Shown here is an 84-nucleotide RNA sequence from Clostridium intestinale, a member of the family "c-di-GMP-I riboswitch aptamer". Taxonomically the source falls in Clostridium intestinale (Bacteria, Bacillati, Clostridia, Clostridium). It scores 78 bits against the family's covariance model.
RNA sequence: ACUUAAAAAAGGCAAACUUAUUGAAAAGUAAGGACGCAAAGCUAUGGGUCUAAUGGGUUAUCCUAUGAUUGCCAGGUUGCUAAG
Numbered sequence: 001a002c003u004u005a006a007a008a009a010a011g012g013c014a015a016a017c018u019u020a021u022u023g024a025a026a027a028g029u030a031a032g033g034a035c036g037c038a039a040a041g042c043u044a045u046g047g048g049u050c051u052a053a054u055g056g057g058u059u060a061u062c063c064u065a066u067g068a069u070u071g072c073c074a075g076g077u078u079g080c081u082a083a084g
Stems, first nucleotide, its partner, number of pairs: 012037002017032006040078004045074003048069003055063003